[Rfam]
The record is a 72-nucleotide RNA from Spizella passerina, which matches "Small nucleolar RNA SNORD58" in Rfam.

RNA sequence: UUGCUGCAAUGACUAUCUUAGAACACCUUUGGAAUACCUAUGAAAAAACCUACUAAGUUCUUUCUGAGCAAC
Numbered sequence: 001u002u003g004c005u006g007c008a009a010u011g012a013c014u015a016u017c018u019u020a021g022a023a024c025a026c027c028u029u030u031g032g033a034a035u036a037c038c039u040a041u042g043a044a045a046a047a048a049c050c051u052a053c054u055a056a057g058u059u060c061u062u063u064c065u066g067a068g069c070a071a072c
Base pairs, nucleotide, nucleotide: 001071002070003069004068
From the family's description: snoRNA U58 is found in introns 1, 3 and 6 of the ribosomal protein RPL17 gene in humans. By type it is a C/D-box small nucleolar RNA. The family's consensus secondary structure was predicted with PFOLD. Gene Ontology terms of the family: RNA processing and nucleolus. The source organism's lineage runs through Eukaryota, Gnathostomata, Euteleostomi, Passeriformes and Spizella. On this family, see Galardi et al., Mol Cell Biol 2002: "Purified box C/D snoRNPs are able to reproduce site-specific 2'-O-methylation of target RNA in vitro".